[Rfam]
RNA sequence: GAGUUACUUGCGCAUGCGAGGCUAAGGCGCGAGAGAGCGCUGGAGCCGCAGGGAAACCGAGUCUGAAGAGGGCGAUUGAGUAUGCGCAAGUAGACCCGAAACCGGGUGAUCUACCCUUGGCCAGGGUGAAGUGUGGGUGAGACCACAUGGAGGCCCGAACCGGUCGUCGUUGAAAAGGCGUCGGAUGAGCUGAGGGUAGGGGAGAAAUUCCAAUCGAACCCGGAGAUAGCUGGUU
Numbered sequence: 001g002a003g004u005u006a007c008u009u010g011c012g013c014a015u016g017c018g019a020g021g022c023u024a025a026g027g028c029g030c031g032a033g034a035g036a037g038c039g040c041u042g043g044a045g046c047c048g049c050a051g052g053g054a055a056a057c058c059g060a061g062u063c064u065g066a067a068g069a070g071g072g073c074g075a076u077u078g079a080g081u082a083u084g085c086g087c088a089a090g091u092a093g094a095c096c097c098g099a100a101a102c103c104g105g106g107u108g109a110u111c112u113a114c115c116c117u118u119g120g121c122c123a124g125g126g127u128g129a130a131g132u133g134u135g136g137g138u139g140a141g142a143c144c145a146c147a148u149g150g151a152g153g154c155c156c157g158a159a160c161c162g163g164u165c166g167u168c169g170u171u172g173a174a175a176a177g178g179c180g181u182c183g184g185a186u187g188a189g190c191u192g193a194g195g196g197u198a199g200g201g202g203a204g205a206a207a208u209u210c211c212a213a214u215c216g217a218a219c220c221c222g223g224a225g226a227u228a229g230c231u232g233g234u235u
Base pairs, nucleotide, nucleotide: 005092006091007090008089009088010087011086012085013084014083015082016081017080020047021046022045023044026041027040028039029038030037051058052057061073062072063071064070095233096232098230102223103222104221105220106219107218111199112198113197114196115195116194117193118192119191120190121189122187124156125155126154127153131148132147133146134145135144136143160184161183162182165180166179167178168177201211202210203209
The family of this 235-nucleotide part of an RNA from Caldicellulosiruptor saccharolyticus is "Bacterial large subunit ribosomal RNA". NCBI's taxonomy places the organism under Bacteria, Caldicellulosiruptorales, Caldicellulosiruptoraceae, Caldicellulosiruptor, Caldicellulosiruptor saccharolyticus. For this family Rfam cites "Crystal structure of the ribosome at 5.5 A resolution" (Yusupov et al., Science, 2001).